The family of this 125-nucleotide RNA sequence from Streptomyces longwoodensis is "Streptomyces RNA 5676".
Pairs were carried over by alignment from the consensus structure.
The family's RNA type in Rfam is small RNA.
A search with the family's covariance model found it, with a score of 113 bits.
Rfam's curators write: Identified by deep sequencing of transcriptome at the end of exponential growth phase.
RNA sequence: AGAUGAGAGAUACACCCGCUCACAGGGGACUGUGGGCGACAUCAGGCCGGGGCCUCCCCAGCUCCGGUCUGGCCGUGCCCUCGCGCACACCGGAGCCGUGAGGCUCCGCAUCUCCACCGAUCGGA
Numbered sequence: 001a002g003a004u005g006a007g008a009g010a011u012a013c014a015c016c017c018g019c020u021c022a023c024a025g026g027g028g029a030c031u032g033u034g035g036g037c038g039a040c041a042u043c044a045g046g047c048c049g050g051g052g053c054c055u056c057c058c059c060a061g062c063u064c065c066g067g068u069c070u071g072g073c074c075g076u077g078c079c080c081u082c083g084c085g086c087a088c089a090c091c092g093g094a095g096c097c098g099u100g101a102g103g104c105u106c107c108g109c110a111u112c113u114c115c116a117c118c119g120a121u122c123g124g125a
Stems, first nucleotide, its partner, number of pairs: 004116002007113001009112002017038009042072005048066006075088004091108007117124002